RNA sequence: GAAAUACUUCGGUAGGUGAGGUUACCACAGGGAUUUGGAUUUUCCUAAGGUUGCUGCCGCAAAUUUGUGGAGACACAAAUCGUUGGUCAGCAGGCUAUGUCGGUUUAAGGCAUAACCUAAUGCAACUAAUAUGCCCUGUGAUGCUAAAGCUUGGACGACGGAAGCACAGC
Number, nucleotide and partner (000 for none) at each position: 001g000002a000003a000004a000005u166006a000007c164008u163009u162010c161011g156012g000013u108014a000015g151016g150017u149018g000019a000020g145021g144022u143023u000024a000025c000026c140027a139028c138029a137030g136031g135032g134033a000034u000035u000036u000037g000038g000039a000040u000041u000042u000043u000044c000045c000046u000047a000048a000049g000050g126051u125052u124053g123054c122055u000056g000057c085058c000059g083060c082061a000062a000063a000064u000065u000066u077067g076068u075069g074070g000071a000072g000073a000074c069075a068076c067077a066078a000079a000080u000081c000082g060083u059084u000085g057086g000087u000088c000089a000090g000091c000092a000093g117094g116095c000096u114097a000098u000099g111100u110101c109102g000103g000104u000105u000106u000107a000108a013109g101110g100111c099112a000113u000114a096115a000116c094117c093118u000119a000120a000121u000122g054123c053124a052125a051126c050127u000128a000129a000130u000131a000132u000133g000134c032135c031136c030137u029138g028139u027140g026141a000142u000143g022144c021145u020146a000147a000148a000149g017150c016151u015152u000153g000154g000155a000156c011157g000158a000159c000160g000161g010162a009163a008164g007165c000166a005167c000168a000169g000170c000
M-box riboswitch aptamer (ykoK leader): a 170-nucleotide sequence from Eubacterium sp. CAG:38.
A search with the family's covariance model found it, with a score of 107 bits.